[Rfam]
RNA sequence: UGACGGGGGCCCGCACAAGCGGUGGAGCAUGUGGUUUAAUUCGAUGCAACGCGAAGAACCUUACCGGGGUUUGAAAUACAGUCGACCGUCCUGGAAACAGGAUUUCUCCUUCGGGAGCGUCUAUACAGGUGGUGCAUGGCUGUCGUCAGCUCGUGUCGUGAGAUGUUGGGUUAAGUCCCGCAACGAGCGCAACCCUUACCCUUAGUUGCCAGCAGGUAAAGCUGGGGACUCUAAGGGGACUGCCUCGGAUAACGAGGAGGAAGGUGGGGACGACGUCAAGUCAGUAUGUCCCUUACAUCCCGGGCUACACACGUGCUACAAUGGCCGGUACAGCGGGUUGCAAAACUGCGAAGUGGAGCUAAUCCCUUAAAGCCGGUCUCAGUUCGGAUUGGAGUCUGCAACUCGACUCCAUGAAGUUGGAAUCGCUAGUAAUCGCGGAUCAGCAUGCCGCGGUGAAUACGUUCCCGGGCCUUGUACACACCGCCCGUCACGCCAUGGAAGUUGGUAGCACCAGAAGUCGCUGGCCCAACCCCUUUUGGGGAGGGAGGCGCCGAAGGUGAGAUUGAUGACUGGGGCGAAGUCGUAACAAGG
Numbered sequence: 001u002g003a004c005g006g007g008g009g010c011c012c013g014c015a016c017a018a019g020c021g022g023u024g025g026a027g028c029a030u031g032u033g034g035u036u037u038a039a040u041u042c043g044a045u046g047c048a049a050c051g052c053g054a055a056g057a058a059c060c061u062u063a064c065c066g067g068g069g070u071u072u073g074a075a076a077u078a079c080a081g082u083c084g085a086c087c088g089u090c091c092u093g094g095a096a097a098c099a100g101g102a103u104u105u106c107u108c109c110u111u112c113g114g115g116a117g118c119g120u121c122u123a124u125a126c127a128g129g130u131g132g133u134g135c136a137u138g139g140c141u142g143u144c145g146u147c148a149g150c151u152c153g154u155g156u157c158g159u160g161a162g163a164u165g166u167u168g169g170g171u172u173a174a175g176u177c178c179c180g181c182a183a184c185g186a187g188c189g190c191a192a193c194c195c196u197u198a199c200c201c202u203u204a205g206u207u208g209c210c211a212g213c214a215g216g217u218a219a220a221g222c223u224g225g226g227g228a229c230u231c232u233a234a235g236g237g238g239a240c241u242g243c244c245u246c247g248g249a250u251a252a253c254g255a256g257g258a259g260g261a262a263g264g265u266g267g268g269g270a271c272g273a274c275g276u277c278a279a280g281u282c283a284g285u286a287u288g289u290c291c292c293u294u295a296c297a298u299c300c301c302g303g304g305c306u307a308c309a310c311a312c313g314u315g316c317u318a319c320a321a322u323g324g325c326c327g328g329u330a331c332a333g334c335g336g337g338u339u340g341c342a343a344a345a346c347u348g349c350g351a352a353g354u355g356g357a358g359c360u361a362a363u364c365c366c367u368u369a370a371a372g373c374c375g376g377u378c379u380c381a382g383u384u385c386g387g388a389u390u391g392g393a394g395u396c397u398g399c400a401a402c403u404c405g406a407c408u409c410c411a412u413g414a415a416g417u418u419g420g421a422a423u424c425g426c427u428a429g430u431a432a433u434c435g436c437g438g439a440u441c442a443g444c445a446u447g448c449c450g451c452g453g454u455g456a457a458u459a460c461g462u463u464c465c466c467g468g469g470c471c472u473u474g475u476a477c478a479c480a481c482c483g484c485c486c487g488u489c490a491c492g493c494c495a496u497g498g499a500a501g502u503u504g505g506u507a508g509c510a511c512c513a514g515a516a517g518u519c520g521c522u523g524g525c526c527c528a529a530c531c532c533c534u535u536u537u538g539g540g541g542a543g544g545g546a547g548g549c550g551c552c553g554a555a556g557g558u559g560a561g562a563u564u565g566a567u568g569a570c571u572g573g574g575g576c577g578a579a580g581u582c583g584u585a586a587c588a589a590g591g
Stems, first nucleotide, its partner, number of pairs: 001478002003475003007472007015462002019426005024319001026317008034308002040055004064303007077125002080122002083119002088103006106117004128292002131290004137286002139281003142277001144275002149188006155164003167180004194269004199237007209226002213224003240260002243257005323378007335366003340359002345354003385416001390411007432454007481590001483587001486583002491577004496572003501567006509559004517552001519550004525545003530541004
Dot-bracket structure: (((((.(((((((.((..((((((.((((((((((....((((........))))........(((((((......((.((.((...((((((....))))))..((((....)))))).)).))..((.((((..((((((.((...(((((((((....)))..((((......))))..)))))).....((((.(((((((...((..(((......)))))....)))))))..((.(((((.....))))).)).....))))....)).).)))...))))))))....)))))))...)).)))))))).)...(((((((.....(((..((...(((....)))...))....))).....)))))))......(....(((((((........)))))))....).....))))).....(((((((.........)))))))......))...)))))))))).))..(.(..((...((((.(((..((((((..((((....(.((((..(((..((((....)))).))).)))).)...))))..))))))..))).))))....))...)..).

Bacterial small subunit ribosomal RNA: a 591-nucleotide part of an RNA from Fidelibacterota bacterium MT.SAG.4. The match comes from Rfam's covariance-model search (1576 bits). The family has 99 seed sequences and 42,628 matches in Rfam 15.1. Rfam links the family to the GO terms ribosome and structural constituent of ribosome.